[Rfam]
RNA: HNH endonuclease-associated RNA and ORF (HEARO) RNA
Nucleotides: 222
Base pairs, nucleotide, nucleotide: 001063002062003061004060005059006058010029012026016023017022030053031052032051033050066208067207068206070204071085072084073083074082088202089201090200091199092198093197094196096194097193098192103137104136107130108129109128110127111126112125113124114123118215119213120212139184140183141182142181143180144179145178146177147176151175152174154172155171156170158168159167
Number, partner (000 for none) and nucleotide at each position: 001063g002062u003061c004060a005059a006058c007000c008000a009000c010029c011000c012026c013000a014000u015000g016023g017022c018000u019000a020000a021000a022017g023016c024000c025000a026012g027000g028000a029010g030053c031052u032051u033050g034000u035000a036000g037000g038000g039000a040000g041000c042000g043000a044000u045000c046000u047000u048000a049000a050033c051032a052031a053030g054000c055000u056000c057000a058006g059005u060004u061003g062002a063001c064000c065000a066208g067207c068206c069000u070204a071085a072084g073083u074082c075000c076000u077000u078000c079000g080000g081000a082074g083073a084072c085071u086000a087000c088202g089201u090200u091199a092198u093197c094196g095000a096194g097193g098192u099000c100000a101000c102000g103137a104136c105000a106000c107130c108129c109128u110127g111126g112125a113124a114123u115000g116000c117000g118215u119213g120212c121000a122000a123114g124113u125112u126111c127110c128109a129108g130107g131000c132000a133000a134000c135000u136104g137103u138000c139184g140183c141182u142181u143180a144179g145178c146177a147176u148000u149000a150000a151175a152174c153000a154172g155171g156170u157000g158168u159167a160000c161000a162000a163000g164000g165000g166000u167159u168158a169000a170156g171155c172154c173000a174152g175151u176147g177146u178145g179144u180143u181142a182141a183140g184139c185000g186000c187000a188000a189000a190000a191000a192098g193097c194096c195000c196094c197093g198092a199091u200090a201089a202088c203000a204070u205000u206068g207067g208066c209000g210000a211000g212120g213119c214000a215118a216000a217000c218000a219000u220000u221000a222000c